Shown here is an 82-nucleotide RNA from Pseudomonas syringae group genomosp. 3, a member of the family "livK RNA". It is one of the family's seed sequences. The base pairs follow the family's consensus structure, which is taken from published work.

RNA sequence: GUGGACGCUUGCCAUACGCCCUGACCCGGCAGGUAUGGAACACCGCGUGGCGACCGGCAUGGACAACGGCGUCCUCCGGAUC
Number, nucleotide and partner (000 for none) at each position: 001g046002u045003g044004g043005a000006c000007g041008c000009u040010u039011g000012c038013c037014a036015u035016a034017c033018g030019c029020c028021c000022u000023g000024a000025c000026c000027c000028g020029g019030c018031a000032g000033g017034u016035a015036u014037g013038g012039a010040a009041c007042a000043c004044c003045g002046c001047g000048u000049g000050g000051c000052g082053a081054c079055c078056g077057g076058c000059a000060u000061g074062g073063a072064c071065a000066a000067c000068g000069g000070c000071g064072u063073c062074c061075u000076c057077c056078g055079g054080a000081u053082c052